[Rfam]
Nucleotides: 133
Base pairs, nucleotide, nucleotide: 001052002051003050006048010044015040016039017038018037019036023032024031025030056072058070059069060068061067080117081116082111083110085108086106087105089103090102091101092100
Number, partner (000 for none) and nucleotide at each position: 001052a002051u003050g004000u005000u006048u007000a008000a009000a010044a011000a012000u013000g014000g015040u016039u017038a018037a019036g020000a021000u022000g023032g024031c025030u026000u027000u028000a029000u030025a031024g032023u033000u034000u035000c036019c037018u038017u039016g040015g041000c042000u043000u044010u045000g046000a047000c048006a049000c050003u051002g052001u053000g054000c055000u056072a057000a058070a059069g060068c061067a062000a063000u064000u065000u066000c067061u068060g069059u070058u071000c072056u073000u074000u075000u076000c077000c078000c079000a080117u081116g082111c083110a084000c085108u086106g087105a088000a089103g090102g091101g092100a093000a094000u095000u096000u097000u098000c099000a100092u101091c102090c103089u104000c105087u106086u107000a108085a109000a110083u111082g112000u113000a114000u115000u116081c117080a118000g119000a120000a121000a122000g123000u124000u125000a126000g127000c128000a129000c130000a131000u132000u133000a